Annotation: This 286-nucleotide RNA from Mus musculus belongs to the Rfam family "Mason-Pfizer monkey virus packaging signal". Taxonomically the source falls in Mus (Eukaryota, Metazoa, Deuterostomia, Theria).

Nucleotides: 286
Stems, first nucleotide, its partner, number of pairs: 006044003012039005050063003090132003093128002097123001098121001102114003134153001136151002140148001141146001158201003161197003210262006218249004223244001271286001273284003
Number, partner (000 for none) and nucleotide at each position: 001000u002000g003000a004000c005000a006044c007043c008042c009000a010000a011000c012039a013038a014037g015036g016035g017000g018000u019000a020000g021000c022000a023000a024000g025000a026000a027000c028000u029000a030000g031000a032000g033000a034000g035016c036015c037014c038013u039012u040000g041000a042008g043007g044006g045000a046000a047000u048000u049000u050063a051062c052061u053000u054000g055000a056000a057000g058000a059000a060000g061052g062051g063050u064000c065000a066000a067000c068000c069000g070000g071000a072000a073000u074000u075000c076000a077000a078000a079000a080000g081000u082000g083000a084000a085000a086000c087000a088000a089000a090132g091131a092130u093128g094127a095000u096000u097123g098121c099000c100000a101000c102114a103113g104112g105000g106000a107000a108000c109000c110000u111000u112104u113103c114102u115000c116000a117000u118000a119000g120000a121098g122000a123097c124000u125000g126000u127094u128093c129000a130092g131091u132090c133000a134153u135000a136151g137150u138000a139000a140148c141146a142000a143000a144000a145000a146141u147000g148140g149000g150137g151136c152000a153134a154000a155000a156000a157000a158201u159200a160199a161197g162196u163195c164000a165000g166000c167000a168000u169000g170000a171000g172000u173000u174000a175000u176000a177000u178000g179000u180000g181000g182000a183000a184000c185000a186000g187000a188000u189000g190000a191000g192000a193000a194000a195163g196162g197161c198000u199160u200159u201158a202000a203000a204000g205000a206000c207000u208000c209000a210262a211261g212260g213259a214258g215257u216000a217000a218249a219248g220247a221246u222000a223244a224000a225000a226000a227000u228000u229000c230000a231000g232000c233000a234000u235000u236000u237000a238000u239000u240000c241000u242000c243000a244223u245000g246221g247220u248219u249218u250000u251000u252000u253000a254000a255000u256000u257215a258214u259213u260212u261211u262210u263000a264000u265000u266000u267000u268000a269000c270000u271286a272000a273284g274283g275282a276000g277000u278000u279000a280000u281000g282275u283274c284273c285000c286271u
Background: It scores 83 bits against the family's covariance model. From the family's description: This family represents a group of sequences that are related to the Mason-Pfizer monkey virus (MPMV) packaging signal. The packaging signal is located in the 5' UTR and is required for specific RNA encapsidation.